[Rfam]
RNA sequence: GCUGGGAGUUCCGGCGUGCUCCUGUAAUCUAGCUACUUGGAGGCCAGGAUUGAGAACAGUUUGAGGGCAGGGGUCCUGCUCUCCGUUGUUCUAUGUCGAUCGGGCGUCCGCGCUAAGUUCGGCAUCAAUAUGGUCACGUUGAGGGAGCUCAAUGUGCCCAGGUUGUCUAAGGAGGGACGUACAGGUCCAGGGUGGAAACACAGCAGACAAAAGUCCCCGUGUCGAAUAGUAGUGGGAUCGCGCCUGUGAAUAGGCAGCGGUUGGCAGCCUGUCCAAGACAGUUGGACUCGAUCCUUU
Numbered sequence: 001g002c003u004g005g006g007a008g009u010u011c012c013g014g015c016g017u018g019c020u021c022c023u024g025u026a027a028u029c030u031a032g033c034u035a036c037u038u039g040g041a042g043g044c045c046a047g048g049a050u051u052g053a054g055a056a057c058a059g060u061u062u063g064a065g066g067g068c069a070g071g072g073g074u075c076c077u078g079c080u081c082u083c084c085g086u087u088g089u090u091c092u093a094u095g096u097c098g099a100u101c102g103g104g105c106g107u108c109c110g111c112g113c114u115a116a117g118u119u120c121g122g123c124a125u126c127a128a129u130a131u132g133g134u135c136a137c138g139u140u141g142a143g144g145g146a147g148c149u150c151a152a153u154g155u156g157c158c159c160a161g162g163u164u165g166u167c168u169a170a171g172g173a174g175g176g177a178c179g180u181a182c183a184g185g186u187c188c189a190g191g192g193u194g195g196a197a198a199c200a201c202a203g204c205a206g207a208c209a210a211a212a213g214u215c216c217c218c219g220u221g222u223c224g225a226a227u228a229g230u231a232g233u234g235g236g237a238u239c240g241c242g243c244c245u246g247u248g249a250a251u252a253g254g255c256a257g258c259g260g261u262u263g264g265c266a267g268c269c270u271g272u273c274c275a276a277g278a279c280a281g282u283u284g285g286a287c288u289c290g291a292u293c294c295u296u297u
Stems, first nucleotide, its partner, number of pairs: 001044003004023006011016001028041003046295009057284005065274007076267005083260006090254005096248001101246007108236002111234005117227009126165004131160003135156009166172002174217005185208003192201003
A member of the RNA family "Metazoan signal recognition particle RNA" from Mytilus coruscus, 297 nucleotides long. Rfam links the family to the GO terms signal recognition particle, endoplasmic reticulum targeting and SRP-dependent cotranslational protein targeting to membrane, signal sequence recognition. The signal recognition particle (SRP) is a universally conserved ribonucleoprotein. By type it is a non-coding RNA gene. A search with the family's covariance model found it, with a score of 262 bits.